Source information:
Rfam assigns this 102-nucleotide RNA to the family "SAH (S-adenosyl-L-homocysteine) riboswitch aptamer".
RNA sequence: CCUUCCGAGGAGCGUUGCAGUUCACGUCGAUGUGAACGAGGCUCGGACAGCAUGGCCAGGACUCUCCGGUUCCGGCCAUCGCCCCAACGGCGCUCACCCACU
Dot-bracket structure: ...(((((............((((((....))))))......))))).......................................................